Shown here is a 594-nucleotide part of an RNA from Schizosaccharomyces japonicus, a member of the family "Eukaryotic large subunit ribosomal RNA". It scores 3308 bits against the family's covariance model. For this family Rfam cites "Crystal structure of the ribosome at 5.5 A resolution" (Yusupov et al., Science, 2001). Pairs were carried over by alignment from the consensus structure, which is taken from published work.
RNA sequence: CGGGGAAAGAAGACCCUGUUGAGCUUGACUCUAGUUUGACAUUGUGAAGAGACAUAGAGGGUGUAGCAUAAGUGGGAGCUUCGGCGCCAGUGAAAUACCACUACCUUUAUAGUUUCUUUACUUAAUCAAUGAAGCGGAAUUGGAAUUCAUUUUCCACAUUCUAGCGUUAAAGUUCUUUACGAACCGAUCCGUGUUGAUGACAUUGUCAGGUGGGGAGUUUGGCUGGGGCGGCACAUCUGUUAAAAGAUAACGCAGGUGUCCUAAGGGGGACUCAUCGAGAACAGAAAUCUCGAGUAGAACAAAAGGGUAAAAGUCCCCUUGAUUUUGAUUUUCAGUGUGAAUACAAACCAUGAAAGUGUGGCCUAUCGAUCCUUUAGUCCCUCGAAAUUCGAGGAUAGAGGUGCCAGAAAAGUUACCACAGGGAUAACUGGCUUGUGGCAGCCAAGCGUUCAUAGCGACGUUGCUUUUUGAUCCUUCGAUGUCGGCUCUUCCUAUCAUACCGAAGCAGAAUUCGGUAAGCGUUGGAUUGUUCACCCACUAAUAGGGAACGUGAGCUGGGUUUAGACCGUCGUGAGACAGGUUAGUUUUACCCUA
Dot-bracket structure: ..(((.((......((((.(((((((.((((...(((((((..(((((((((((((((((..........(((((..((....))............))))).))))))).))))))))))...(((((.....((((...((((.....)))).................((((.....))))...))))..))))).....)))))))....))))..((((.....))).)((((((...........))))))..((....((((((((.((((((.......))))))...))((......))....))))))....(((..((((.......))))..))).(((....))).))..........(((((...((((.......)))).))))).........)))))..))))))........(.(.(.((((((...((.......))...))))))...)).)..........(((((((((((..(..((((((......))))))....).(((.(.....).))).....)))))..)..)))).).....(((((((....))).))))....))..))).
Numbered sequence: 001c002g003g004g005g006a007a008a009g010a011a012g013a014c015c016c017u018g019u020u021g022a023g024c025u026u027g028a029c030u031c032u033a034g035u036u037u038g039a040c041a042u043u044g045u046g047a048a049g050a051g052a053c054a055u056a057g058a059g060g061g062u063g064u065a066g067c068a069u070a071a072g073u074g075g076g077a078g079c080u081u082c083g084g085c086g087c088c089a090g091u092g093a094a095a096u097a098c099c100a101c102u103a104c105c106u107u108u109a110u111a112g113u114u115u116c117u118u119u120a121c122u123u124a125a126u127c128a129a130u131g132a133a134g135c136g137g138a139a140u141u142g143g144a145a146u147u148c149a150u151u152u153u154c155c156a157c158a159u160u161c162u163a164g165c166g167u168u169a170a171a172g173u174u175c176u177u178u179a180c181g182a183a184c185c186g187a188u189c190c191g192u193g194u195u196g197a198u199g200a201c202a203u204u205g206u207c208a209g210g211u212g213g214g215g216a217g218u219u220u221g222g223c224u225g226g227g228g229c230g231g232c233a234c235a236u237c238u239g240u241u242a243a244a245a246g247a248u249a250a251c252g253c254a255g256g257u258g259u260c261c262u263a264a265g266g267g268g269g270a271c272u273c274a275u276c277g278a279g280a281a282c283a284g285a286a287a288u289c290u291c292g293a294g295u296a297g298a299a300c301a302a303a304a305g306g307g308u309a310a311a312a313g314u315c316c317c318c319u320u321g322a323u324u325u326u327g328a329u330u331u332u333c334a335g336u337g338u339g340a341a342u343a344c345a346a347a348c349c350a351u352g353a354a355a356g357u358g359u360g361g362c363c364u365a366u367c368g369a370u371c372c373u374u375u376a377g378u379c380c381c382u383c384g385a386a387a388u389u390c391g392a393g394g395a396u397a398g399a400g401g402u403g404c405c406a407g408a409a410a411a412g413u414u415a416c417c418a419c420a421g422g423g424a425u426a427a428c429u430g431g432c433u434u435g436u437g438g439c440a441g442c443c444a445a446g447c448g449u450u451c452a453u454a455g456c457g458a459c460g461u462u463g464c465u466u467u468u469u470g471a472u473c474c475u476u477c478g479a480u481g482u483c484g485g486c487u488c489u490u491c492c493u494a495u496c497a498u499a500c501c502g503a504a505g506c507a508g509a510a511u512u513c514g515g516u517a518a519g520c521g522u523u524g525g526a527u528u529g530u531u532c533a534c535c536c537a538c539u540a541a542u543a544g545g546g547a548a549c550g551u552g553a554g555c556u557g558g559g560u561u562u563a564g565a566c567c568g569u570c571g572u573g574a575g576a577c578a579g580g581u582u583a584g585u586u587u588u589a590c591c592c593u594a
Stems, first nucleotide, its partner, number of pairs: 003593003007588002015422004020418002022414005028218004035210007044121010054110007071102005078085002125198005135191004142154004172184004221234001222232003235257006260361002266318006272298002275293006299308002323347003328342004349358003372400005380394004431472001433470001435469001437465006446456002483558001484556004488550001489547005496521001499516006523537003527533001564582004568577003